[Rfam]
RNA sequence: CCUGCCGAAGUUUCCCUCAGGAUAGCAGUAACGUUUUCAGUUUUAUGAGGUAAAGCGAAUGAUUAGAGGCCUUGGGGUUGAAACAACCUUAACCUAUUCUCAAACUUUAAAUAUGUAAGAAGUCCUUGUUACUUAGUUGAACGUGGACAUUUGAAUGUAUCGUUACUAGUGGGCCAUUUUUGGUAAGCAGAACUGGCGAUGCGGGAUGAACCGAACGCGAGGUUAAGGUGCCGGAAUGUACGCUCAUCAGACACCACAAAAGGUGUUAGUUCAUCUAGACAGCAGGACGGUGGCCAUGGAAGUCGGAAUCCGCUAAGGAGUGUGUAACAACUCACCUGCCGAAUGAACUAGCCCUGAAAAUGGAUGGCGCUUAAGCGUGCUACCCAUACCUCGCCGCCAGGGUAGAAACGAUGCCCUGGCGAGUAGGCAGGCGUGGAGGUCCGUGACGAAGCCUUGGGGGUGACCCCGGGUCGAACGGCCUCUAGUGCAGAU
Numbered sequence: 001c002c003u004g005c006c007g008a009a010g011u012u013u014c015c016c017u018c019a020g021g022a023u024a025g026c027a028g029u030a031a032c033g034u035u036u037u038c039a040g041u042u043u044u045a046u047g048a049g050g051u052a053a054a055g056c057g058a059a060u061g062a063u064u065a066g067a068g069g070c071c072u073u074g075g076g077g078u079u080g081a082a083a084c085a086a087c088c089u090u091a092a093c094c095u096a097u098u099c100u101c102a103a104a105c106u107u108u109a110a111a112u113a114u115g116u117a118a119g120a121a122g123u124c125c126u127u128g129u130u131a132c133u134u135a136g137u138u139g140a141a142c143g144u145g146g147a148c149a150u151u152u153g154a155a156u157g158u159a160u161c162g163u164u165a166c167u168a169g170u171g172g173g174c175c176a177u178u179u180u181u182g183g184u185a186a187g188c189a190g191a192a193c194u195g196g197c198g199a200u201g202c203g204g205g206a207u208g209a210a211c212c213g214a215a216c217g218c219g220a221g222g223u224u225a226a227g228g229u230g231c232c233g234g235a236a237u238g239u240a241c242g243c244u245c246a247u248c249a250g251a252c253a254c255c256a257c258a259a260a261a262g263g264u265g266u267u268a269g270u271u272c273a274u275c276u277a278g279a280c281a282g283c284a285g286g287a288c289g290g291u292g293g294c295c296a297u298g299g300a301a302g303u304c305g306g307a308a309u310c311c312g313c314u315a316a317g318g319a320g321u322g323u324g325u326a327a328c329a330a331c332u333c334a335c336c337u338g339c340c341g342a343a344u345g346a347a348c349u350a351g352c353c354c355u356g357a358a359a360a361u362g363g364a365u366g367g368c369g370c371u372u373a374a375g376c377g378u379g380c381u382a383c384c385c386a387u388a389c390c391u392c393g394c395c396g397c398c399a400g401g402g403u404a405g406a407a408a409c410g411a412u413g414c415c416c417u418g419g420c421g422a423g424u425a426g427g428c429a430g431g432c433g434u435g436g437a438g439g440u441c442c443g444u445g446a447c448g449a450a451g452c453c454u455u456g457g458g459g460g461u462g463a464c465c466c467c468g469g470g471u472c473g474a475a476c477g478g479c480c481u482c483u484a485g486u487g488c489a490g491a492u
Stems, first nucleotide, its partner, number of pairs: 001431006011024001013022003027167007041120007053108001054106002060102003065097001067095003072092006079085001122148004127143004173197004178192005202213003217394005223388001227384003236381001238380001241377003261355003265352010282339005288312003294306002313317001318333001322331002395421009432487001434484008443476002451471002457466003
The family of this 492-nucleotide part of an RNA from Zymoseptoria tritici is "Eukaryotic large subunit ribosomal RNA". A search with the family's covariance model found it, with a score of 3420 bits. On this family, see Yusupov et al., Science 2001: "Crystal structure of the ribosome at 5.5 A resolution". The family's consensus secondary structure is taken from published work. The family has 88 seed sequences and 107,465 matches in Rfam 15.1.